[Rfam]
RNA sequence: GGGCGGAUGGCUCAGAGGUUAGAGCGCCUGCUUCACACGCAGGAGGUCGCAGGUUCAAAUCCUGCUCCGCCCA
Numbered sequence: 001g002g003g004c005g006g007a008u009g010g011c012u013c014a015g016a017g018g019u020u021a022g023a024g025c026g027c028c029u030g031c032u033u034c035a036c037a038c039g040c041a042g043g044a045g046g047u048c049g050c051a052g053g054u055u056c057a058a059a060u061c062c063u064g065c066u067c068c069g070c071c072c073a
Stems, first nucleotide, its partner, number of pairs: 001072007010025004027043005049065005
Dot-bracket structure: (((((((..((((........)))).(((((.......))))).....(((((.......)))))))))))).

tRNA: a 73-nucleotide RNA from Dictyoglomus turgidum. By type it is a transfer RNA. The base pairs follow the family's consensus structure, which is taken from published work. From the family's description: Transfer RNA (tRNA) molecules are approximately 80 nucleotides in length.